[Rfam]
RNA sequence: AAUUAAAUACGAUUUCUACCUAAGACUCAGGAGGCAUCAGCCUUAAUAGUUAAAUCCUGCCGAGGAAGUUUACAACGACUUUAUUUCCCUCGGUUAAACUUCGGUUUAGACGAGGGAUUUUCUUUUGAGAAA
Numbered sequence: 001a002a003u004u005a006a007a008u009a010c011g012a013u014u015u016c017u018a019c020c021u022a023a024g025a026c027u028c029a030g031g032a033g034g035c036a037u038c039a040g041c042c043u044u045a046a047u048a049g050u051u052a053a054a055u056c057c058u059g060c061c062g063a064g065g066a067a068g069u070u071u072a073c074a075a076c077g078a079c080u081u082u083a084u085u086u087c088c089c090u091c092g093g094u095u096a097a098a099c100u101u102c103g104g105u106u107u108a109g110a111c112g113a114g115g116g117a118u119u120u121u122c123u124u125u126u127g128a129g130a131a132a
Base pairs, nucleotide, nucleotide: 028059029058030057031056032055033042034041035040086117087116088115089114090113091112092111094109095108096107097106098105
Shown here is a 132-nucleotide RNA from Periweissella fabalis, a member of the family "Ribosomal protein L10 leader". Rfam classes the family as a cis-regulatory leader. Lineage of the source: Bacteria > Bacillati > Bacillota > Lactobacillales > Periweissella.